This 276-nucleotide RNA sequence from Synchytrium endobioticum belongs to the Rfam family "Metazoan signal recognition particle RNA".
The family's consensus secondary structure is taken from published work.
It scores 74 bits against the family's covariance model.
By type it is a non-coding RNA gene.
[Rfam]
RNA sequence: GCUGGACAUGUAACCGUGUCUGUAAUGGCAUCAGUGGAUGAAGACUAAUUGAUCUGGACUCCCGCCCCUGAUUAUGUACGCCGCUGACUAGCCACCUCCGUGAAGACACGCUAGACAAGUGUUGACUCUUGCAGGAGGGUCACCACGUGUCCUAGGAAGCGCUGAAUCGCACGAGGCUGGCAACAGAACAGUGCAAAGGCGUGAAGCGUGUCAGUCCGGAAAUCAUGGCUUGAGGCUGCAGGUCAGAGGUUCCAAUCCGCUAGGCGACUCCCCACU
Numbered sequence: 001g002c003u004g005g006a007c008a009u010g011u012a013a014c015c016g017u018g019u020c021u022g023u024a025a026u027g028g029c030a031u032c033a034g035u036g037g038a039u040g041a042a043g044a045c046u047a048a049u050u051g052a053u054c055u056g057g058a059c060u061c062c063c064g065c066c067c068c069u070g071a072u073u074a075u076g077u078a079c080g081c082c083g084c085u086g087a088c089u090a091g092c093c094a095c096c097u098c099c100g101u102g103a104a105g106a107c108a109c110g111c112u113a114g115a116c117a118a119g120u121g122u123u124g125a126c127u128c129u130u131g132c133a134g135g136a137g138g139g140u141c142a143c144c145a146c147g148u149g150u151c152c153u154a155g156g157a158a159g160c161g162c163u164g165a166a167u168c169g170c171a172c173g174a175g176g177c178u179g180g181c182a183a184c185a186g187a188a189c190a191g192u193g194c195a196a197a198g199g200c201g202u203g204a205a206g207c208g209u210g211u212c213a214g215u216c217c218g219g220a221a222a223u224c225a226u227g228g229c230u231u232g233a234g235g236c237u238g239c240a241g242g243u244c245a246g247a248g249g250u251u252c253c254a255a256u257c258c259g260c261u262a263g264g265c266g267a268c269u270c271c272c273c274a275c276u
Stems, first nucleotide, its partner, number of pairs: 001029003004021007033276005038269001043265001045263003049259001051257003055254003064250003068246003073242001075240002080236003084232001090230005097220001099219001102216002105212008114151004119146003123142008152156001159202005169194004177186003
Rfam links the family to the GO terms SRP-dependent cotranslational protein targeting to membrane, signal sequence recognition and signal recognition particle, endoplasmic reticulum targeting.